The record is a 175-nucleotide RNA from Oryza glumipatula, which matches "MIR807 microRNA precursor family" in Rfam. The match comes from Rfam's covariance-model search (148 bits). The family's consensus secondary structure was predicted with WAR. NCBI's taxonomy places the organism under Eukaryota, Liliopsida, Poales, Poaceae, Oryza.
RNA sequence: AACCACACUAUCAAUGAAUGGAUUCACCCGUGAGAUGACGUGGUUGUUCUAUCUAGGAUGAGGACGUGCCAUCCUAUUAAUUUCGUGCGAUGGCUAGUAAUAUGAUGCCACAUCCUCGUCCUGGUGAAACAACCACGUCAUCUCACGGAUGAAUCCAUUCAUUAAUAGUGCGGUU
Numbered sequence: 001a002a003c004c005a006c007a008c009u010a011u012c013a014a015u016g017a018a019u020g021g022a023u024u025c026a027c028c029c030g031u032g033a034g035a036u037g038a039c040g041u042g043g044u045u046g047u048u049c050u051a052u053c054u055a056g057g058a059u060g061a062g063g064a065c066g067u068g069c070c071a072u073c074c075u076a077u078u079a080a081u082u083u084c085g086u087g088c089g090a091u092g093g094c095u096a097g098u099a100a101u102a103u104g105a106u107g108c109c110a111c112a113u114c115c116u117c118g119u120c121c122u123g124g125u126g127a128a129a130c131a132a133c134c135a136c137g138u139c140a141u142c143u144c145a146c147g148g149a150u151g152a153a154u155c156c157a158u159u160c161a162u163u164a165a166u167a168g169u170g171c172g173g174u175u
Stems, first nucleotide, its partner, number of pairs: 001175004006170002009167003013163003017159003021155006028148001030146004035141005041135008051125002054123002057120002063114002070107004075102005086097001